[Rfam]
RNA sequence: AUGAUUUUCUCUUUAUUCAGUUUCUUCUUAAGGUGAAGAAAACUCUUUGUAAAUGUCCUAGAGAAAUAUAGUAGCUUUCUGUUCACACUUCGCAAGUAAAAAGGGUGGAUUGUUCCACUACUGACAUAU
Numbered sequence: 001a002u003g004a005u006u007u008u009c010u011c012u013u014u015a016u017u018c019a020g021u022u023u024c025u026u027c028u029u030a031a032g033g034u035g036a037a038g039a040a041a042a043c044u045c046u047u048u049g050u051a052a053a054u055g056u057c058c059u060a061g062a063g064a065a066a067u068a069u070a071g072u073a074g075c076u077u078u079c080u081g082u083u084c085a086c087a088c089u090u091c092g093c094a095a096g097u098a099a100a101a102a103g104g105g106u107g108g109a110u111u112g113u114u115c116c117a118c119u120a121c122u123g124a125c126a127u128a129u
Base pairs, nucleotide, nucleotide: 001056002055004054005053006052007051009049019044020043021042022041023039024038025037026036027035069123070122071121072120073119074118088103089102090101
RNA: Small Cajal body specific RNA 24
Organism: Myotis myotis